[Rfam]
RNA: MIR2629 microRNA precursor family
RNA sequence: UACCGAAGUUUUCCUCGGCAGUUAACUGCAGCCGGAUUUCUAAAACUUCAGCAGUUAACUGCCGAGGGGACA
Dot-bracket structure: ...........((.(((((((((((((((.....................))))))))))))))).))....